[Rfam]
RNA: mir-8799 microRNA precursor family
Organism: Canis lupus
RNA sequence: GGGGGGAGUGCCAGAUCCUGGGCUGCUUCCCCUGGUGCCCUGGGAUCUGGGGCCUGUGCCGCUGGAAUCACGCUCCUGGGCCAUGCAGCCCCCU
Number, nucleotide and partner (000 for none) at each position: 001g094002g093003g092004g091005g090006g089007a000008g000009u000010g086011c085012c000013a000014g081015a000016u000017c079018c078019u000020g076021g075022g074023c000024u072025g071026c000027u000028u066029c065030c000031c000032c064033u061034g060035g059036u058037g057038c056039c000040c000041u000042g054043g000044g053045a000046u051047c000048u000049g000050g000051g046052g000053c044054c042055u000056g038057u037058g036059c035060c034061g033062c000063u000064g032065g029066a028067a000068u000069c000070a000071c025072g024073c000074u022075c021076c020077u000078g018079g017080g000081c014082c000083a000084u000085g011086c010087a000088g000089c006090c005091c004092c003093c002094u001